[Rfam]
RNA sequence: AACAUCAUAAUUAUAUCGCAAAUGUACUACUAACAGGCAGCUUUUUCUUAAAGUUGUUGGGAAGGGCUAAAUAUUCUAUGUUUUCCUCAUUUUUAGUAGUGCUGAAGCGUAGAUAGAUUGAACGUUGCUGGGCGCCUGAUGUUGAUCAUUUUUGAAAUGAGAUAUUGGGAAUCAGCUGUAUCUACAUUU
Numbered sequence: 001a002a003c004a005u006c007a008u009a010a011u012u013a014u015a016u017c018g019c020a021a022a023u024g025u026a027c028u029a030c031u032a033a034c035a036g037g038c039a040g041c042u043u044u045u046u047c048u049u050a051a052a053g054u055u056g057u058u059g060g061g062a063a064g065g066g067c068u069a070a071a072u073a074u075u076c077u078a079u080g081u082u083u084u085c086c087u088c089a090u091u092u093u094u095a096g097u098a099g100u101g102c103u104g105a106a107g108c109g110u111a112g113a114u115a116g117a118u119u120g121a122a123c124g125u126u127g128c129u130g131g132g133c134g135c136c137u138g139a140u141g142u143u144g145a146u147c148a149u150u151u152u153u154g155a156a157a158u159g160a161g162a163u164a165u166u167g168g169g170a171a172u173c174a175g176c177u178g179u180a181u182c183u184a185c186a187u188u189u
Stems, first nucleotide, its partner, number of pairs: 017109003024102009036058004043052003059088003063084001065082003120182002122179003135169002139165005146160005
Dot-bracket structure: ................(((....(((((((((...((((...(((....)))..))))(((.(.(((............))).).))).....)))))))))....)))..........(((((..........((..(((((..(((((.....))))))))))..)).......))).)).......
Shown here is a 189-nucleotide RNA from Saccharomyces arboricola, a member of the family "Small nucleolar RNA snR32".
It scores 182 bits against the family's covariance model.
Taxonomically the source falls in Saccharomyces arboricola (Eukaryota, Ascomycota, Saccharomycetales, Saccharomycetaceae).
The base pairs follow the family's consensus structure, which was predicted with WAR.